[Rfam]
RNA sequence: AGGUAUCUAUUUGACAGAUCUGGAGUAGUUUGUUUGCUGCUGAGGUUUCUAACAUAGAUACAAUUUAAAAGUAUACUCAUGUUUUCUGUCUGUCUGAUUGUGGCAGCCAAGAUUGAAUAGAGGAAUACGGGG
Numbered sequence: 001a002g003g004u005a006u007c008u009a010u011u012u013g014a015c016a017g018a019u020c021u022g023g024a025g026u027a028g029u030u031u032g033u034u035u036g037c038u039g040c041u042g043a044g045g046u047u048u049c050u051a052a053c054a055u056a057g058a059u060a061c062a063a064u065u066u067a068a069a070a071g072u073a074u075a076c077u078c079a080u081g082u083u084u085u086c087u088g089u090c091u092g093u094c095u096g097a098u099u100g101u102g103g104c105a106g107c108c109a110a111g112a113u114u115g116a117a118u119a120g121a122g123g124a125a126u127a128c129g130g131g132g
Base pairs, nucleotide, nucleotide: 003061004060005059006058007057008056011052012051016048017047018046019045020044024038025037026036027035028034074124076122077121078120082115085112086111087110090106091105092104093103094102
Dot-bracket structure: ..((((((..((...(((((...(((((.....))))).....)))))..))...))))))............(.(((...(..(((..(((((.......)))))...)))..)....))).)........